A member of the RNA family "Rhizobiales sRNA Atu_At1" from Rhizobium leguminosarum, 108 nucleotides long. It is annotated as a small RNA. It is one of the family's seed sequences.

RNA sequence: GGUCGCGGCGUGCCAAUCGGACGUGACGGAGAUGGUGAACGCACCGGUUUUUCCGAUUUCUCGGUGCGGGCAACGAAGCGCCAGGCGAGCACCUUACCCGUUCGCCGC
Numbered sequence: 001g002g003u004c005g006c007g008g009c010g011u012g013c014c015a016a017u018c019g020g021a022c023g024u025g026a027c028g029g030a031g032a033u034g035g036u037g038a039a040c041g042c043a044c045c046g047g048u049u050u051u052u053c054c055g056a057u058u059u060c061u062c063g064g065u066g067c068g069g070g071c072a073a074c075g076a077a078g079c080g081c082c083a084g085g086c087g088a089g090c091a092c093c094u095u096a097c098c099c100g101u102u103c104g105c106c107g108c
Base pairs, nucleotide, nucleotide: 006107007106008105009104011023012022014020025102026101027100028099029098034093035092036091037090040068041067042066043065044064045063046062069082070081071080